[Rfam]
RNA: U1 spliceosomal RNA
Organism: Salvator merianae
RNA sequence: ACAGUAACCUGGCAGGGGAGACACCAUUAUCAUGAAGGUGGUUUUCCCAGGGUGAGGCUCAUCCAUUGCCCUCUGGGUGUCCUGACCCCUGCGAUUUCCCCAAAUGCGGGAAACUCGACUGCAUAAUUGUUGGAAUUUGAAUCUGAAAAUAAUCUCUGGUAGUUUAA
Numbered sequence: 001a002c003a004g005u006a007a008c009c010u011g012g013c014a015g016g017g018g019a020g021a022c023a024c025c026a027u028u029a030u031c032a033u034g035a036a037g038g039u040g041g042u043u044u045u046c047c048c049a050g051g052g053u054g055a056g057g058c059u060c061a062u063c064c065a066u067u068g069c070c071c072u073c074u075g076g077g078u079g080u081c082c083u084g085a086c087c088c089c090u091g092c093g094a095u096u097u098c099c100c101c102a103a104a105u106g107c108g109g110g111a112a113a114c115u116c117g118a119c120u121g122c123a124u125a126a127u128u129g130u131u132g133g134a135a136u137u138u139g140a141a142u143c144u145g146a147a148a149a150u151a152a153u154c155u156c157u158g159g160u161a162g163u164u165u166a167a
Base pairs, nucleotide, nucleotide: 012122013121014120015119016048017047018046019045020044021043023042024041025040026039027038049090050089051088052087054086056083057082060079061078062077063076064075092117093116094115095113096112097111099109100108137167138166139165140164141163143162144161145160